[Rfam]
RNA sequence: UUUCAUAAACAAAAUGCACUUCGUAUAACCCCAAUAAUAUGGUUUGGGGGUUUCUACCAGUACCCGAACAGUGCUGAUUACGAAGAGUUGUGAUUUCACA
Numbered sequence: 001u002u003u004c005a006u007a008a009a010c011a012a013a014a015u016g017c018a019c020u021u022c023g024u025a026u027a028a029c030c031c032c033a034a035u036a037a038u039a040u041g042g043u044u045u046g047g048g049g050g051u052u053u054c055u056a057c058c059a060g061u062a063c064c065c066g067a068a069c070a071g072u073g074c075u076g077a078u079u080a081c082g083a084a085g086a087g088u089u090g091u092g093a094u095u096u097c098a099c100a
Stems, first nucleotide, its partner, number of pairs: 019085007029049006058076006
RNA: Purine riboswitch aptamer